[Rfam]
This 121-nucleotide RNA sequence from Paenibacillus psychroresistens belongs to the Rfam family "SAM riboswitch aptamer (S box leader)".
The match comes from Rfam's covariance-model search (74 bits).
Pairs were carried over by alignment from the consensus structure, which is taken from published work.
About the family: The SAM riboswitch is found upstream of a number of genes which code for proteins involved in methionine or cysteine biosynthesis in Gram-positive bacteria. The SAM riboswitch acts at the level of transcription termination control. The predicted structure consists of a complex stem-loop region followed by a single stem loop terminator region. An alternative and mutually exclusive form involves bases in the 3' segment of helix 1 with those in the 5' region of helix 5 to form a structure termed the anti-terminator form.
The organism belongs to Paenibacillus, within Bacteria.

RNA sequence: UUCUUAUCUAGAGUAGGUGGAGGGACUAGCCCGAUGACACCCGGCAACCGACAAAUCUUGGAAACAAGGUAUGAACGGUGCUAAUUCUUGCAGGAGCCAUGCAGCUUCUGAGAGAUGAGAA
Numbered sequence: 001u002u003c004u005u006a007u008c009u010a011g012a013g014u015a016g017g018u019g020g021a022g023g024g025a026c027u028a029g030c031c032c033g034a035u036g037a038c039a040c041c042c043g044g045c046a047a048c049c050g051a052c053a054a055a056u057c058u059u060g061g062a063a064a065c066a067a068g069g070u071a072u073g074a075a076c077g078g079u080g081c082u083a084a085u086u087c088u089u090g091c092a093g094g095a096g097c098c099a100u101g102c103a104g105c106u107u108c109u110g111a112g113a114g115a116u117g118a119g120a121a
Stems, first nucleotide, its partner, number of pairs: 001121008013042001016041003022032003026090001028088002043082004048078002052073002086113001091110006